Background: Shown here is a 102-nucleotide sequence from endosymbiont 'TC1' of Trimyema compressum, a member of the family "SAM riboswitch aptamer (S box leader)".
RNA sequence: CAUUCAUCAAGAGAAGUUGAGGGACUAGGCCCUAUGACGCUUCAGCAACCUGCUAAAGGCAAGGUGCUAAUUCCUAUCAGAAAUUAUUCUGGGAGAUGACGU
Number, nucleotide and partner (000 for none) at each position: 001c000002a000003u000004u099005c098006a097007u096008c095009a000010a000011g000012a000013g043014a042015a041016g040017u039018u000019g000020a000021g032022g031023g030024a000025c000026u076027a075028g074029g073030c023031c022032c021033u000034a000035u000036g000037a000038c000039g017040c016041u015042u014043c013044a068045g067046c066047a065048a000049c064050c063051u061052g060053c059054u058055a000056a000057a000058g054059g053060c052061a051062a000063g050064g049065u047066g046067c045068u044069a000070a000071u000072u094073c029074c028075u027076a026077u000078c091079a090080g089081a088082a087083a000084u000085u000086a000087u082088u081089c080090u079091g078092g000093g000094a072095g008096a007097u006098g005099a004100c000101g000102u000
Taxonomically the source falls in Bacillota (Bacteria, Bacillati). It scores 73 bits against the family's covariance model.